[Rfam]
RNA sequence: UGGAUGACAUUGCCUAAUUCCCAAUCGGGAAACGGGGGAACCACUCUGGGUGAAUUGACUUCGACGUCUGGUGUUCUACAGCGCCUGAGAAGUCAUAGGGAACCUUCAACCGAACCCCACAGCUAACCUCGUCGGCACCGGAAGGAGAACCA
Numbered sequence: 001u002g003g004a005u006g007a008c009a010u011u012g013c014c015u016a017a018u019u020c021c022c023a024a025u026c027g028g029g030a031a032a033c034g035g036g037g038g039a040a041c042c043a044c045u046c047u048g049g050g051u052g053a054a055u056u057g058a059c060u061u062c063g064a065c066g067u068c069u070g071g072u073g074u075u076c077u078a079c080a081g082c083g084c085c086u087g088a089g090a091a092g093u094c095a096u097a098g099g100g101a102a103c104c105u106u107c108a109a110c111c112g113a114a115c116c117c118c119a120c121a122g123c124u125a126a127c128c129u130c131g132u133c134g135g136c137a138c139c140g141g142a143a144g145g146a147g148a149a150c151c152a
Stems, first nucleotide, its partner, number of pairs: 011137004018031003032132006048117003056095007098111002
The family of this 152-nucleotide RNA from Paenibacillus sp. MY03 is "c-di-AMP riboswitch aptamer (ydaO/yuaA leader)". NCBI's taxonomy places the organism under Bacteria, Bacillati, Bacilli, Paenibacillaceae, Paenibacillus. Rfam's curators write: This family represents a conserved RNA structure found upstream of the ydaO and yuaA genes in Bacillus subtilis and related genes in other bacteria. The match comes from Rfam's covariance-model search (68 bits).